[Rfam]
RNA: Lysine riboswitch aptamer
RNA sequence: GAAAUGGAUAGAGGCGCGGGUUUAAAGAGUAGCAAAUGUUAAAUCGCCGAGAUUGCUUGAGCGUUUGUUAAAGGUAAAACCGCCGAAGGGAACAGCACGGCAGCUGUUAACCUGGUUGCAUGGCCGAACAGGCAUGUGACUGUCAUCAUUAUGAUAAUGAUGGAGAGCUAUACACCAA
Numbered sequence: 001g002a003a004a005u006g007g008a009u010a011g012a013g014g015c016g017c018g019g020g021u022u023u024a025a026a027g028a029g030u031a032g033c034a035a036a037u038g039u040u041a042a043a044u045c046g047c048c049g050a051g052a053u054u055g056c057u058u059g060a061g062c063g064u065u066u067g068u069u070a071a072a073g074g075u076a077a078a079a080c081c082g083c084c085g086a087a088g089g090g091a092a093c094a095g096c097a098c099g100g101c102a103g104c105u106g107u108u109a110a111c112c113u114g115g116u117u118g119c120a121u122g123g124c125c126g127a128a129c130a131g132g133c134a135u136g137u138g139a140c141u142g143u144c145a146u147c148a149u150u151a152u153g154a155u156a157a158u159g160a161u162g163g164a165g166a167g168c169u170a171u172a173c174a175c176c177a178a
Stems, first nucleotide, its partner, number of pairs: 006173001008171004016083004021078004032068008087113003091108006114141009124131001143163007